[Rfam]
RNA sequence: CGAGCACACAAACCCAAAGGUCAUCUCUCCAUCAUGUCUUGCCCUUGCUAUGUGUGCGCAAAGCAAACGGAACCUUGUCGCCUUUCAUGGGCUGUGUGUUGACGUGCCUCUGGAAGUGAAUUCAAGGAGCCACAUCU
Numbered sequence: 001c002g003a004g005c006a007c008a009c010a011a012a013c014c015c016a017a018a019g020g021u022c023a024u025c026u027c028u029c030c031a032u033c034a035u036g037u038c039u040u041g042c043c044c045u046u047g048c049u050a051u052g053u054g055u056g057c058g059c060a061a062a063g064c065a066a067a068c069g070g071a072a073c074c075u076u077g078u079c080g081c082c083u084u085u086c087a088u089g090g091g092c093u094g095u096g097u098g099u100u101g102a103c104g105u106g107c108c109u110c111u112g113g114a115a116g117u118g119a120a121u122u123c124a125a126g127g128a129g130c131c132a133c134a135u136c137u
Stems, first nucleotide, its partner, number of pairs: 002059001004057006019044002022041002027036001070130001073127004082116006089109004

Shown here is a 137-nucleotide RNA from Danio rerio, a member of the family "Small nucleolar RNA SNORA68". The match comes from Rfam's covariance-model search (66 bits). It is annotated as an H/ACA-box small nucleolar RNA. Its family is annotated with RNA processing and nucleolus in the Gene Ontology. NCBI's taxonomy places the organism under Eukaryota, Bilateria, Vertebrata, Teleostomi, Danio. U68 is a member of the H/ACA class of small nucleolar RNAs (snoRNAs) which act as guides in the the modification of uridines to pseudouridines. The literature on the family includes a 1997 paper in Genes Dev by Ganot et al., "The family of box ACA small nucleolar RNAs is defined by an evolutionarily conserved secondary structure and ubiquitous sequence elements essential for RNA accumulation".